A member of the RNA family "Small nucleolar RNA snoR53Y" from Juglans regia, 88 nucleotides long. A reference for the family is Brown et al. (2001), "Multiple snoRNA gene clusters from Arabidopsis", RNA. A search with the family's covariance model found it, with a score of 60 bits. NCBI's taxonomy places the organism under Eukaryota, Streptophytina, Tracheophyta, Magnoliopsida, Juglans. Rfam classes the family as a C/D-box small nucleolar RNA. Clan: snoR53 clan.
[Rfam]
RNA sequence: GUUCCCCAUGAUGCUUCAGUAUGAACCAUGCUAAUGUUGAUCAGUUCAUGAUCAAUCCUUUAUUAUUCUUUCAUUUGCUGAGGGAAUG
Numbered sequence: 001g002u003u004c005c006c007c008a009u010g011a012u013g014c015u016u017c018a019g020u021a022u023g024a025a026c027c028a029u030g031c032u033a034a035u036g037u038u039g040a041u042c043a044g045u046u047c048a049u050g051a052u053c054a055a056u057c058c059u060u061u062a063u064u065a066u067u068c069u070u071u072c073a074u075u076u077g078c079u080g081a082g083g084g085a086a087u088g
Stems, first nucleotide, its partner, number of pairs: 001087005